[Rfam]
RNA sequence: GUGUGCUUAUGAAGACUGCUAACAAAAGAGUACCCAACUCAGUUGGCGUUCAGAUGCCAUCACAC
Numbered sequence: 001g002u003g004u005g006c007u008u009a010u011g012a013a014g015a016c017u018g019c020u021a022a023c024a025a026a027a028g029a030g031u032a033c034c035c036a037a038c039u040c041a042g043u044u045g046g047c048g049u050u051c052a053g054a055u056g057c058c059a060u061c062a063c064a065c
Base pairs, nucleotide, nucleotide: 001065002064003063004062005061014051015050017048018047019046020045021044022043023042029039030038031037
A member of the RNA family "Selenocysteine insertion sequence 1" from Apteryx owenii, 65 nucleotides long. It is annotated as a cis-regulatory element. Rfam links the family to the GO term selenocysteine incorporation. A reference for the family is Walczak et al. (1996), "A novel RNA structural motif in the selenocysteine insertion element of eukaryotic selenoprotein mRNAs", RNA. From the family's description: The incorporation of selenocysteine into a protein sequence is directed by an in-frame UGA codon (usually a stop codon) within the coding region of the mRNA. Selenoprotein mRNAs contain a conserved secondary structure in the 3' UTR that is required for the distinction of UGA stop from UGA selenocysteine. The selenocysteine insertion sequence (SECIS) is around 60 nt in length and adopts a hairpin structure which is sufficiently well-defined and conserved to act as a computational screen for selenoprotein genes. Pairs were carried over by alignment from the consensus structure, which is taken from published work.